[Rfam]
The family of this 80-nucleotide RNA sequence from Melipona quadrifasciata is "mir-315 microRNA precursor family". For this family Rfam cites "Systematic discovery and characterization of fly microRNAs using 12 Drosophila genomes" (Stark et al., Genome Res, 2007). The base pairs follow the family's consensus structure, which was predicted with RNAalifold. Lineage of the source: Eukaryota > Bilateria > Panarthropoda > Neoptera > Melipona. The match comes from Rfam's covariance-model search (80 bits).

RNA sequence: CUCUUUAUGCUUUUGAUUGUUGCUCAGAAAGCCUUGAUUAUUAUAUUGGCUUUCGGGCAAUAAUCAUAAUCACAAAAGGG
Numbered sequence: 001c002u003c004u005u006u007a008u009g010c011u012u013u014u015g016a017u018u019g020u021u022g023c024u025c026a027g028a029a030a031g032c033c034u035u036g037a038u039u040a041u042u043a044u045a046u047u048g049g050c051u052u053u054c055g056g057g058c059a060a061u062a063a064u065c066a067u068a069a070u071c072a073c074a075a076a077a078g079g080g
Base pairs, nucleotide, nucleotide: 001079002078004076005075006074011069012068014066015065016064017063019061020060021059022058023057024056025055027054028053029052030051031050032049033048